[Rfam]
RNA sequence: GCCGCUCGGGCAAAAGCGCCGCCGAAAACAUCCAGGCGGCGUGACGAUAUCGCUUCCGGCCCGCGACCACGGAUGUACUGGCGCGGGCGGUUGAGGCGAGUGGGAGAAGGUCGGGCGUUCGCCCGGCCUUUUUUCGU
Numbered sequence: 001g002c003c004g005c006u007c008g009g010g011c012a013a014a015a016g017c018g019c020c021g022c023c024g025a026a027a028a029c030a031u032c033c034a035g036g037c038g039g040c041g042u043g044a045c046g047a048u049a050u051c052g053c054u055u056c057c058g059g060c061c062c063g064c065g066a067c068c069a070c071g072g073a074u075g076u077a078c079u080g081g082c083g084c085g086g087g088c089g090g091u092u093g094a095g096g097c098g099a100g101u102g103g104g105a106g107a108a109g110g111u112c113g114g115g116c117g118u119u120c121g122c123c124c125g126g127c128c129u130u131u132u133u134u135c136g137u
Base pairs, nucleotide, nucleotide: 001040002039003038004037005036006035050099051098052097053096054095055094059088060087061086064083065082067081068080069079101136102135103134104133105132106131107130108129109128110127111126112125113124114123115122116121
RNA: Alphaproteobacterial sRNA ar35
Organism: Methylopila jiangsuensis